The record is a 129-nucleotide RNA from Streptomyces sp. SID8352, which matches "Streptomyces RNA 5676" in Rfam. On this family, see Vockenhuber et al., RNA Biol 2011: "Deep sequencing-based identification of small non-coding RNAs in Streptomyces coelicolor". NCBI's taxonomy places the organism under Bacteria, Actinomycetota, Actinomycetes, Streptomycetaceae, Streptomyces.
RNA sequence: GGAUGAGAGAUGCACCGGUCCGCGGGAGACCGCGGUCGGUGCCCCGGGCGGGGCCUUCCGGCUUCGACCCGGUCGUGCCUCGCGCACACCACCGGGAUCCACGGAUUCCGGAUCUCCUCACCGAUCGGA
Numbered sequence: 001g002g003a004u005g006a007g008a009g010a011u012g013c014a015c016c017g018g019u020c021c022g023c024g025g026g027a028g029a030c031c032g033c034g035g036u037c038g039g040u041g042c043c044c045c046g047g048g049c050g051g052g053g054c055c056u057u058c059c060g061g062c063u064u065c066g067a068c069c070c071g072g073u074c075g076u077g078c079c080u081c082g083c084g085c086a087c088a089c090c091a092c093c094g095g096g097a098u099c100c101a102c103g104g105a106u107u108c109c110g111g112a113u114c115u116c117c118u119c120a121c122c123g124a125u126c127g128g129a
Stems, first nucleotide, its partner, number of pairs: 004120004009116002016039001018037001020035006044072005049066006075087004092111008121128002
Identified by deep sequencing of transcriptome at the end of exponential growth phase. Appears longer on northern blot than sequencing transcript. This indicates processing step. Streptomyces specific. It scores 97 bits against the family's covariance model. The family's RNA type in Rfam is small RNA.